[Rfam]
RNA: msiK RNA
Organism: Streptomyces sp. Z26
RNA sequence: GGAGCGGACCUUUACCACGGAUCGUCCGGCACGUACCUGCCGGUGAAGGAGACAACA
Numbered sequence: 001g002g003a004g005c006g007g008a009c010c011u012u013u014a015c016c017a018c019g020g021a022u023c024g025u026c027c028g029g030c031a032c033g034u035a036c037c038u039g040c041c042g043g044u045g046a047a048g049g050a051g052a053c054a055a056c057a
Stems, first nucleotide, its partner, number of pairs: 009049006026043006